[Rfam]
Rfam assigns this 36-nucleotide RNA sequence from Reichenbachiella sp. 5M10 to the family "DUF805b RNA". Its Rfam clan is "DUF805 clan". By type it is a cis-regulatory element. Lineage of the source: Bacteria > Bacteroidota > Cytophagia > Cytophagales > Reichenbachiella. The match comes from Rfam's covariance-model search (43 bits).
RNA sequence: ACGGCGAUACCCGAAAAGCCGAAGAUAGAGUAGGGA
Dot-bracket structure: .((((....[[[.....))))...........]]].